[Rfam]
The family of this 74-nucleotide sequence from Chanos chanos is "mir-216 microRNA precursor family".
Clan: mir-216 clan.
The family has 57 seed sequences and 1,667 matches in Rfam 15.1.
RNA sequence: CGACUGGGUAAUCUCUGCAGGCAACUGUGAAGUGAUACAAUAUCUCACAAUGACCUGGAGAGAUUCUGCAGUCU
Numbered sequence: 001c002g003a004c005u006g007g008g009u010a011a012u013c014u015c016u017g018c019a020g021g022c023a024a025c026u027g028u029g030a031a032g033u034g035a036u037a038c039a040a041u042a043u044c045u046c047a048c049a050a051u052g053a054c055c056u057g058g059a060g061a062g063a064u065u066c067u068g069c070a071g072u073c074u
Stems, first nucleotide, its partner, number of pairs: 003072004010065007020056002024051001026049005